[Rfam]
RNA sequence: CAGUGAUUUCAGCUCUUUUAGUAUUUGUCCAGCAGGUUUCCCGCCUGGCGGGAAGCCUCA
Numbered sequence: 001c002a003g004u005g006a007u008u009u010c011a012g013c014u015c016u017u018u019u020a021g022u023a024u025u026u027g028u029c030c031a032g033c034a035g036g037u038u039u040c041c042c043g044c045c046u047g048g049c050g051g052g053a054a055g056c057c058u059c060a
Stems, first nucleotide, its partner, number of pairs: 035057010
Dot-bracket structure: ..................................((((((((((...))))))))))...
The family of this 60-nucleotide sequence from Tricholaema leucomelas is "U7 small nuclear RNA". On this family, see Spycher et al., Nucleic Acids Res 1994: "3' end processing of mouse histone pre-mRNA: evidence for additional base-pairing between U7 snRNA and pre-mRNA". The match comes from Rfam's covariance-model search (65 bits). Rfam describes the family as follows. Animal histone pre-mRNAs are spliced by a different mechanism than nuclear pre-mRNAs and self-splicing introns. This processing involves the U7 snRNP, which contains only one RNA species: U7.